[Rfam]
RNA sequence: CGGUCGGGCGUGCACCCUUGGGACGGUGCACAGGUAUAGACCGGUCCUAAUGCCCGAUGACGAGCGGUGUGUUCACCCCCAGGGACACCCCCG
Number, nucleotide and partner (000 for none) at each position: 001c043002g042003g041004u040005c039006g000007g000008g000009c000010g031011u030012g029013c028014a027015c026016c025017c000018u000019u000020g000021g000022g000023a000024c000025g016026g015027u014028g013029c012030a011031c010032a000033g000034g000035u000036a000037u000038a000039g005040a004041c003042c002043g001044g000045u000046c000047c000048u000049a000050a000051u000052g000053c000054c000055c000056g000057a000058u000059g000060a000061c000062g000063a000064g000065c093066g092067g091068u000069g089070u087071g086072u085073u084074c083075a000076c000077c000078c000079c000080c000081a000082g000083g074084g073085a072086c071087a070088c000089c069090c000091c067092c066093g065

A member of the RNA family "Rhodo-rpoB RNA", 93 nucleotides long. Rfam's curators put it in the seed alignment. Pairs were carried over by alignment from the consensus structure, which is taken from published work.